nhaA-I RNA: a 60-nucleotide RNA sequence from Anaeromyxobacter sp. Fw109-5. The sequence is in the family's curated seed alignment. Rfam classes the family as a riboswitch.
RNA sequence: GGGUGCGGCGCCGGCCGGAAGCCGGCGCCGCAGGCAUCCGGAGCAGUCGGGCCGCUGCUU
Numbered sequence: 001g002g003g004u005g006c007g008g009c010g011c012c013g014g015c016c017g018g019a020a021g022c023c024g025g026c027g028c029c030g031c032a033g034g035c036a037u038c039c040g041g042a043g044c045a046g047u048c049g050g051g052c053c054g055c056u057g058c059u060u
Stems, first nucleotide, its partner, number of pairs: 005031011041060007